[Rfam]
RNA sequence: CCCAAGACUAGAGUCAUAUACUGACAGCUCUUGUCCUGGUGUGCUAGAGUCUUCGGAGAGAAUCUCUUGGUUUUUAUUCACUGGCAAGGGCAAUCAGUGCCCCCGUGAGUGCCCAGAUUAGAAAUAUGC
Numbered sequence: 001c002c003c004a005a006g007a008c009u010a011g012a013g014u015c016a017u018a019u020a021c022u023g024a025c026a027g028c029u030c031u032u033g034u035c036c037u038g039g040u041g042u043g044c045u046a047g048a049g050u051c052u053u054c055g056g057a058g059a060g061a062a063u064c065u066c067u068u069g070g071u072u073u074u075u076a077u078u079c080a081c082u083g084g085c086a087a088g089g090g091c092a093a094u095c096a097g098u099g100c101c102c103c104c105g106u107g108a109g110u111g112c113c114c115a116g117a118u119u120a121g122a123a124a125u126a127u128g129c
Stems, first nucleotide, its partner, number of pairs: 002056002005053002007050003012045002015043005023035004067121007079111004084106001088102004
About this RNA
The family of this 129-nucleotide RNA sequence from Vicugna pacos is "Small nucleolar RNA SNORA3/SNORA45 family". Rfam 15.1 lists 2,080 matches to the family in 639 species. Clan: SNORA3 clan. On this family, see Huttenhofer et al., EMBO J 2001: "RNomics: an experimental approach that identifies 201 candidates for novel, small, non-messenger RNAs in mouse". Rfam describes the family as follows. The members of this family belong to the H/ACA class of snoRNAs which are thought to guide the sites of modification of uridines to pseudouridines. This family includes mouse snoMBI-28 and human homologues ACA3 (SNORA3) and ACA3-2 (SNORA45). The match comes from Rfam's covariance-model search (86 bits).